[Rfam]
RNA sequence: CCAAUCUAGGCGUCCAAAUCUGUCUCUGACAUUUCCCUGUACGUUAGCGAUGAUCCGCAAGGUAGCGACGACGAUUGGACCAGGGCAGCCGGCGUUCCCUGAUCAGGAUGGCUGGCCUGG
Numbered sequence: 001c002c003a004a005u006c007u008a009g010g011c012g013u014c015c016a017a018a019u020c021u022g023u024c025u026c027u028g029a030c031a032u033u034u035c036c037c038u039g040u041a042c043g044u045u046a047g048c049g050a051u052g053a054u055c056c057g058c059a060a061g062g063u064a065g066c067g068a069c070g071a072c073g074a075u076u077g078g079a080c081c082a083g084g085g086c087a088g089c090c091g092g093c094g095u096u097c098c099c100u101g102a103u104c105a106g107g108a109u110g111g112c113u114g115g116c117c118u119g120g
Base pairs, nucleotide, nucleotide: 001078002077003076004075005074006073007071009069010044011043012042013041015039016038021031022030023029024028047066048065055062056061080120081119083118084117085116086114087113088112089111090110091109098107099106100105
Shown here is a 120-nucleotide RNA, a member of the family "Flavobacterium-1 RNA". The base pairs follow the family's consensus structure, which is taken from published work.